[Rfam]
RNA sequence: UUUUGACUUUUAGAUUCAUUCAAUCAAUAAUGUAUUUGGUCUAUAAUAUAAAUCACAUACAUCAUUGAUUGAAUGAACCUAAAAGUUAAA
Numbered sequence: 001u002u003u004u005g006a007c008u009u010u011u012a013g014a015u016u017c018a019u020u021c022a023a024u025c026a027a028u029a030a031u032g033u034a035u036u037u038g039g040u041c042u043a044u045a046a047u048a049u050a051a052a053u054c055a056c057a058u059a060c061a062u063c064a065u066u067g068a069u070u071g072a073a074u075g076a077a078c079c080u081a082a083a084a085g086u087u088a089a090a
Stems, first nucleotide, its partner, number of pairs: 002089002006086008015077014030062003037055004